[Rfam]
RNA sequence: UCCCCUUCAGUCCUCCGAGUCCCCUUUCCCGCAAGGGAUGUUCAUCUGAACCUCGUGGCAUUGUUUGGUACUUCAUGUUCAAAUCCCAUCCUAGAACCUGUAUCGGGUAUCACGCUUUACGCGGAUGGGAUACAGGAUCUCGGUCGUCCUAUGGCGGCCGAGGCCAAACCUGCCAAAGAGAACGGGUCUCGGAACUUAACCCUAAGUAUCCCG
Numbered sequence: 001u002c003c004c005c006u007u008c009a010g011u012c013c014u015c016c017g018a019g020u021c022c023c024c025u026u027u028c029c030c031g032c033a034a035g036g037g038a039u040g041u042u043c044a045u046c047u048g049a050a051c052c053u054c055g056u057g058g059c060a061u062u063g064u065u066u067g068g069u070a071c072u073u074c075a076u077g078u079u080c081a082a083a084u085c086c087c088a089u090c091c092u093a094g095a096a097c098c099u100g101u102a103u104c105g106g107g108u109a110u111c112a113c114g115c116u117u118u119a120c121g122c123g124g125a126u127g128g129g130a131u132a133c134a135g136g137a138u139c140u141c142g143g144u145c146g147u148c149c150u151a152u153g154g155c156g157g158c159c160g161a162g163g164c165c166a167a168a169c170c171u172g173c174c175a176a177a178g179a180g181a182a183c184g185g186g187u188c189u190c191g192g193a194a195c196u197u198a199a200c201c202c203u204a205a206g207u208a209u210c211c212c213g
Stems, first nucleotide, its partner, number of pairs: 009196003015192004

The family of this 213-nucleotide part of an RNA from Coniochaeta pulveracea is "Ascomycota telomerase RNA". Its Rfam clan is "Telomerase clan". The match comes from Rfam's covariance-model search (519 bits). The base pairs follow the family's consensus structure. The source organism's lineage runs through Eukaryota, Opisthokonta, saccharomyceta, Pezizomycotina and Coniochaeta. The family has 4 seed sequences and 475 matches in Rfam 15.1. The literature on the family includes a 2013 paper in Nucleic Acids Res by Qi et al., "The common ancestral core of vertebrate and fungal telomerase RNAs". Its family is annotated with telomerase activity, telomere maintenance via telomerase and telomerase catalytic core complex in the Gene Ontology.